[Rfam]
RNA sequence: AAAGUUCUGAGAUACUCGUUAAGCUCUUAUUUUGAACCUACAUAUAUAUUCAGGGAGUUCAAUAUUUAGAUGAGAAAAUGUACCUUUAUGUGAAUCCUUACAAGGUAUUAAAGGCGAUUGAGGCAUCUGUGCGGACACCCACCUAUCUGAGGAUAGGGAUCAAAAUUAGAGUACCGAUAUUUUGGAUUUAAU
Numbered sequence: 001a002a003a004g005u006u007c008u009g010a011g012a013u014a015c016u017c018g019u020u021a022a023g024c025u026c027u028u029a030u031u032u033u034g035a036a037c038c039u040a041c042a043u044a045u046a047u048a049u050u051c052a053g054g055g056a057g058u059u060c061a062a063u064a065u066u067u068a069g070a071u072g073a074g075a076a077a078a079u080g081u082a083c084c085u086u087u088a089u090g091u092g093a094a095u096c097c098u099u100a101c102a103a104g105g106u107a108u109u110a111a112a113g114g115c116g117a118u119u120g121a122g123g124c125a126u127c128u129g130u131g132c133g134g135a136c137a138c139c140c141a142c143c144u145a146u147c148u149g150a151g152g153a154u155a156g157g158g159a160u161c162a163a164a165a166u167u168a169g170a171g172u173a174c175c176g177a178u179a180u181u182u183u184g185g186a187u188u189u190a191a192u
Stems, first nucleotide, its partner, number of pairs: 003189002006186009017176002031165002033162003037158002053140003057136004064130001067129006078118002
The record is a 192-nucleotide RNA from Clostridium sp. Maddingley MBC34-26, which matches "6S / SsrS RNA" in Rfam. Rfam classes the family as a non-coding RNA gene. Rfam describes the family as follows. E. coli 6S RNA was the first non coding RNA to be sequenced, but its function was unknown until recently. It scores 48 bits against the family's covariance model.